[Rfam]
RNA sequence: CCGCAUACUACAGCGCCUGAACUGUUCCGUACGGAGAACAACACGAACAGUUGACGAGGAGGAGGUUCAUCGAGCAUCGGCGGAUGCCUCCCGGUUGUCCGGCACAAUCGUCAGCAGCAGGAUUAAAACAAGGAGGCAACUCUUUGCACAACGUCCUUCUGCACAAGCCGC
Numbered sequence: 001c002c003g004c005a006u007a008c009u010a011c012a013g014c015g016c017c018u019g020a021a022c023u024g025u026u027c028c029g030u031a032c033g034g035a036g037a038a039c040a041a042c043a044c045g046a047a048c049a050g051u052u053g054a055c056g057a058g059g060a061g062g063a064g065g066u067u068c069a070u071c072g073a074g075c076a077u078c079g080g081c082g083g084a085u086g087c088c089u090c091c092c093g094g095u096u097g098u099c100c101g102g103c104a105c106a107a108u109c110g111u112c113a114g115c116a117g118c119a120g121g122a123u124u125a126a127a128a129c130a131a132g133g134a135g136g137c138a139a140c141u142c143u144u145u146g147c148a149c150a151a152c153g154u155c156c157u158u159c160u161g162c163a164c165a166a167g168c169c170g171c
Base pairs, nucleotide, nucleotide: 020052021051022050023049024048025047026046027045061091062090063089064088065087070080071079072078073077092110093109094108095107096106097105115161116160117159119157120156121155129146130145131144132143133142134141135140
Notes:
Shown here is a 171-nucleotide RNA from Sinobaca qinghaiensis, a member of the family "glmS glucosamine-6-phosphate activated ribozyme aptamer". Rfam links the family to the GO terms catalytic activity and regulation of gene expression. A search with the family's covariance model found it, with a score of 112 bits. By type it is a riboswitch. Rfam's curators write: This entry contains a glucosamine-6-phosphate activated ribozyme that is found in the mRNA for GlmS. GlmS is an enzyme that uses fructose-6-phosphate and glutamine to generate glucosamine-6-phosphate. The ribozyme catalyses self cleavage of the glmS mRNA that is thought to regulate GlmS activity.